[Rfam]
RNA: mir-544 microRNA precursor family
Organism: Cervus elaphus
RNA sequence: AUCACCUAGGGAUCUUGUUAGAAUGCAGGUUCUAAUUUCCAGAGGUCUGGGGAGGGGCUUGUGAUUCUGCAUUACUAACAAGCUCCCAGGUGAUACUGA
Numbered sequence: 001a002u003c004a005c006c007u008a009g010g011g012a013u014c015u016u017g018u019u020a021g022a023a024u025g026c027a028g029g030u031u032c033u034a035a036u037u038u039c040c041a042g043a044g045g046u047c048u049g050g051g052g053a054g055g056g057g058c059u060u061g062u063g064a065u066u067c068u069g070c071a072u073u074a075c076u077a078a079c080a081a082g083c084u085c086c087c088a089g090g091u092g093a094u095a096c097u098g099a
Base pairs, nucleotide, nucleotide: 003092004091005090009086010085011084014082015081016080017079018078019077020076022073023072025070026069027068028067029066031064032063